About this RNA
Rfam assigns this 150-nucleotide RNA from Carya illinoinensis to the family "mir-166 microRNA precursor family". Lineage of the source: Eukaryota > Streptophyta > Euphyllophyta > Magnoliopsida > Carya. Rfam describes the family as follows. This family represents the plant microRNA (miRNA) precursor mir-166. It scores 62 bits against the family's covariance model. A reference for the family is Ambros (2001), "microRNAs: tiny regulators with great potential", Cell.
RNA sequence: UUUGAGGGGAAUUUUGCCUGGUCCAAGGCCGUGCCCCCAGCGCCUAGCUCGUUCGAUCUUGAAUAUUGGCUUUCUUUCCAAACCUAUCAUAUGAUGACUGAUCUAUAUGUGGCAUGCAGUGUCCUCGGACCAGGCUUCAUUCCCCUCAAG
Dot-bracket structure: ((((((((((((...((((((..(.(((..............................................................................................))).)..))))))...))))))))))))